[Rfam]
RNA sequence: UGGCGAUGAGGAAAAUAUUCGUGUGCCUGAGACUGGUUAUUACAGGUCGGUGUCGGCAACACAUCCCUCUAAGAAGUUCUGAGCCA
Dot-bracket structure: ((((..............................................................................))))
RNA: Small nucleolar RNA U61
Organism: Asparagus officinalis